[Rfam]
Overview:
A member of the RNA family "Small nucleolar RNA SNORD103/SNORD85" from Chiloscyllium punctatum, 86 nucleotides long. Gene Ontology terms of the family: nucleolus and RNA processing. Pairs were carried over by alignment from the consensus structure. It is annotated as a C/D-box small nucleolar RNA. The organism belongs to Chiloscyllium, within Eukaryota. A reference for the family is Vitali et al. (2003), "Identification of 13 novel human modification guide RNAs", Nucleic Acids Res.
RNA sequence: UCUGGCAACGAUGAUGCACUUGGCCUCACUGAGAACAGUAUUCACGAGUUAAUUUCAAUUUUGUACUCCUAAAGAUCUGAGCCAGA
Numbered sequence: 001u002c003u004g005g006c007a008a009c010g011a012u013g014a015u016g017c018a019c020u021u022g023g024c025c026u027c028a029c030u031g032a033g034a035a036c037a038g039u040a041u042u043c044a045c046g047a048g049u050u051a052a053u054u055u056c057a058a059u060u061u062u063g064u065a066c067u068c069c070u071a072a073a074g075a076u077c078u079g080a081g082c083c084a085g086a
Stems, first nucleotide, its partner, number of pairs: 001086006